[Rfam]
RNA sequence: AACGACAAGAGAGGCGCCUUGCCCAGGUCGUACUACCGCAGAGAUCAAGCUCUGUGUGCGCUAGGCGCAGUUGGCUUCCCCCAAUUGAACCAUGCAGCACCAUCGGUGGUAUUAGGGGGAGCAAGGCCGAAGCGAUGGGGGACUUGAAUCUCCGAUUGCUGGUUACAGAGGCUGAAUCCUCUGAACUGUCAGUAAUCAUCGAUUACUGGAGUGCUCUUGGUGAU
Numbered sequence: 001a002a003c004g005a006c007a008a009g010a011g012a013g014g015c016g017c018c019u020u021g022c023c024c025a026g027g028u029c030g031u032a033c034u035a036c037c038g039c040a041g042a043g044a045u046c047a048a049g050c051u052c053u054g055u056g057u058g059c060g061c062u063a064g065g066c067g068c069a070g071u072u073g074g075c076u077u078c079c080c081c082c083a084a085u086u087g088a089a090c091c092a093u094g095c096a097g098c099a100c101c102a103u104c105g106g107u108g109g110u111a112u113u114a115g116g117g118g119g120a121g122c123a124a125g126g127c128c129g130a131a132g133c134g135a136u137g138g139g140g141g142a143c144u145u146g147a148a149u150c151u152c153c154g155a156u157u158g159c160u161g162g163u164u165a166c167a168g169a170g171g172c173u174g175a176a177u178c179c180u181c182u183g184a185a186c187u188g189u190c191a192g193u194a195a196u197c198a199u200c201g202a203u204u205a206c207u208g209g210a211g212u213g214c215u216c217u218u219g220g221u222g223a224u
Stems, first nucleotide, its partner, number of pairs: 006219006016127007024119001030112008131160006138153005161187004166183006189209007
The family of this 224-nucleotide RNA from Deefgea piscis is "Lysine riboswitch aptamer". The family's consensus secondary structure is taken from published work. From the family's description: Riboswitches are metabolite binding domains within certain messenger RNAs that serve as precision sensors for their corresponding targets. Allosteric rearrangement of mRNA structure is mediated by ligand binding, and this results in modulation of gene expression. This family includes riboswitches that sense lysine in a number of genes involved in lysine metabolism, including lysC. NCBI's taxonomy places the organism under Bacteria, Pseudomonadati, Neisseriales, Chitinibacteraceae, Deefgea. For this family Rfam cites "Riboswitches Control Fundamental Biochemical Pathways in Bacillus subtilis and Other Bacteria" (Mandal et al., Cell, 2003).